[Rfam]
Shown here is a 131-nucleotide RNA from Arachis hypogaea, a member of the family "mir-395 microRNA precursor family". Rfam describes the family as follows. mir-395 was identified in both Arabidopsis thaliana and Oryza sativa computationally and was later experimentally verified. mir-395 is thought to target mRNAs coding for ATP sulphurylases. The mature sequence is excised from the 3' arm of the hairpin. Rfam 15.1 lists 2,798 matches to the family in 234 species. Rfam links the family to the GO terms RISC complex and miRNA-mediated post-transcriptional gene silencing.
Nucleotides: 131
Stems, first nucleotide, its partner, number of pairs: 005127005011121010022111002024108008033099002
Number, partner (000 for none) and nucleotide at each position: 001000u002000u003000g004000u005127g006126u007125c008124u009123u010000g011121g012120a013119g014118u015117u016116c017115c018114u019113c020112u021000g022111a023110a024108c025107g026106c027105u028104u029103c030102a031101u032000g033099u034098g035000u036000g037000u038000g039000c040000u041000a042000a043000c044000u045000u046000g047000u048000c049000c050000a051000a052000u053000a054000a055000u056000c057000u058000a059000g060000c061000u062000a063000g064000u065000a066000a067000c068000c069000a070000u071000u072000u073000g074000c075000u076000a077000u078000a079000a080000a081000a082000g083000a084000u085000a086000u087000a088000g089000u090000a091000a092000g093000u094000u095000c096000u097000u098034c099033a100000a101031a102030u103029g104028a105027a106026g107025u108024g109000u110023u111022u112020g113019g114018g115017g116016g117015a118014a119013c120012u121011c122000c123009g124008g125007g126006g127005u128000g129000c130000a131000u